Source information: A member of the RNA family "Small nucleolar RNA Z40" from Jaculus jaculus, 73 nucleotides long. Rfam classes the family as a C/D-box small nucleolar RNA. The family's consensus secondary structure was predicted with PFOLD.

Nucleotides: 073
Stems, first nucleotide, its partner, number of pairs: 003071004
Number, partner (000 for none) and nucleotide at each position: 001000g002000c003071a004070u005069g006068u007000u008000a009000u010000g011000a012000u013000g014000a015000u016000g017000g018000g019000c020000a021000a022000a023000a024000u025000g026000u027000u028000c029000a030000a031000c032000u033000a034000c035000u036000c037000u038000g039000a040000a041000u042000u043000g044000a045000c046000c047000g048000a049000a050000u051000g052000a053000a054000a055000c056000u057000a058000g059000u060000c061000u062000u063000u064000c065000u066000g067000a068006g069005c070004a071003u072000c073000c
On this family, see Chen et al., Nucleic Acids Res 2003: "The high diversity of snoRNAs in plants: identification and comparative study of 120 snoRNA genes from Oryza sativa".